This 74-nucleotide RNA sequence from Cryobacterium fucosi belongs to the Rfam family "c-di-GMP-I riboswitch aptamer".
[Rfam]
RNA sequence: CUUUCGCAAGGGCACACCCGUUGAGAAACGGGGUCGCAAAGGCACGGGACCUUCGGGUCAGCCGGCCUACCGAA
Numbered sequence: 001c002u003u004u005c006g007c008a009a010g011g012g013c014a015c016a017c018c019c020g021u022u023g024a025g026a027a028a029c030g031g032g033g034u035c036g037c038a039a040a041g042g043c044a045c046g047g048g049a050c051c052u053u054c055g056g057g058u059c060a061g062c063c064g065g066c067c068u069a070c071c072g073a074a
Stems, first nucleotide, its partner, number of pairs: 012037002017032006040068004045064003048059003
Notes: A search with the family's covariance model found it, with a score of 59 bits. The family's consensus secondary structure is taken from published work. NCBI's taxonomy places the organism under Bacteria, Actinomycetota, Actinomycetes, Microbacteriaceae, Cryobacterium.